[Rfam]
Shown here is a 97-nucleotide sequence from Streptomyces sp. PT12, a member of the family "Bacterial small signal recognition particle RNA".
Clan: SRP clan.
For this family Rfam cites "SRPDB: Signal Recognition Particle Database" (Rosenblad et al., Nucleic Acids Res, 2003).
A search with the family's covariance model found it, with a score of 63 bits.
The family's consensus secondary structure is taken from published work.

RNA sequence: GUCAGCCCCUCACGCGACGCUAUCUCGCUGAACUCCCCCAGGGCCGGAAGGCAGCAAGGGUAGGUGAGCUCUGGUGGGUGCGUGAGGGGCCCUCGUC
Numbered sequence: 001g002u003c004a005g006c007c008c009c010u011c012a013c014g015c016g017a018c019g020c021u022a023u024c025u026c027g028c029u030g031a032a033c034u035c036c037c038c039c040a041g042g043g044c045c046g047g048a049a050g051g052c053a054g055c056a057a058g059g060g061u062a063g064g065u066g067a068g069c070u071c072u073g074g075u076g077g078g079u080g081c082g083u084g085a086g087g088g089g090c091c092c093u094c095g096u097c
Base pairs, nucleotide, nucleotide: 005090006089007088008087009086010085011084012083013082014081015078018076019075020074021073022072024068025067026066027065028064029063035060036059037058043052044051045050